[Rfam]
RNA sequence: GUGGUAUUGUCAAAGUGCUUACAGUGCAGGUAGUACUAUGCCAUACCUACUGCAGUGGAGGCACUUACAGCAAUACCCC
Numbered sequence: 001g002u003g004g005u006a007u008u009g010u011c012a013a014a015g016u017g018c019u020u021a022c023a024g025u026g027c028a029g030g031u032a033g034u035a036c037u038a039u040g041c042c043a044u045a046c047c048u049a050c051u052g053c054a055g056u057g058g059a060g061g062c063a064c065u066u067a068c069a070g071c072a073a074u075a076c077c078c079c
Base pairs, nucleotide, nucleotide: 004076005075006074007073009071010070013066014065015064016063017062018061019060020059022057023056025054026053027052029051030050031049032048033047
RNA: mir-17 microRNA precursor family
Organism: Sparus aurata